[Rfam]
RNA sequence: GCAGCGCCCGGCCCCCGGGCUGGGCGAGGAUUGAAAC
Numbered sequence: 001g002c003a004g005c006g007c008c009c010g011g012c013c014c015c016c017g018g019g020c021u022g023g024g025c026g027a028g029g030a031u032u033g034a035a036a037c
Base pairs, nucleotide, nucleotide: 005026006025007024008023009022010021011020012019013018
Dot-bracket structure: ....(((((((((....)))))))))...........
The record is a 37-nucleotide RNA sequence from Limnothrix sp. P13C2, which matches "CRISPR RNA direct repeat element" in Rfam. Pairs were carried over by alignment from the consensus structure, which was predicted with WAR. It scores 51 bits against the family's covariance model. NCBI's taxonomy places the organism under Bacteria, Bacillati, Cyanobacteriota, Cyanophyceae, Limnothrix. Gene Ontology term of the family: defense response.